[Rfam]
RNA: UnaL2 LINE 3' element
RNA sequence: UGCCCUCACUACUGUAAGUCGCUCUGGAUGAGAGCGUCUGCUAAAUUACUCCAG
Numbered sequence: 001u002g003c004c005c006u007c008a009c010u011a012c013u014g015u016a017a018g019u020c021g022c023u024c025u026g027g028a029u030g031a032g033a034g035c036g037u038c039u040g041c042u043a044a045a046u047u048a049c050u051c052c053a054g
Base pairs, nucleotide, nucleotide: 013043014041015040016039020036021035022034023033024032025031